DUF3800-V RNA: a 95-nucleotide RNA from Candidatus Magnetovum chiemense. A search with the family's covariance model found it, with a score of 63 bits. The source organism's lineage runs through Bacteria, Nitrospirota, Nitrospiria, Nitrospiraceae and Candidatus Magnetovum.
[Rfam]
RNA sequence: UGUAUAAGCGAUAAGACCGCUGUGGGUUCCUUCAGUGUUCCCUUCCGUAGGUUGGCUAAGCUGAGGGGAAUUCGCCCACAGGGCUCGCUUUUUCU
Numbered sequence: 001u002g003u004a005u006a007a008g009c010g011a012u013a014a015g016a017c018c019g020c021u022g023u024g025g026g027u028u029c030c031u032u033c034a035g036u037g038u039u040c041c042c043u044u045c046c047g048u049a050g051g052u053u054g055g056c057u058a059a060g061c062u063g064a065g066g067g068g069a070a071u072u073c074g075c076c077c078a079c080a081g082g083g084c085u086c087g088c089u090u091u092u093u094c095u
Base pairs, nucleotide, nucleotide: 002094004092006090008088009087023078024077025076026075027074030066031065032064033063034062035061036060041055042054045051046050
The base pairs follow the family's consensus structure, which is taken from published work.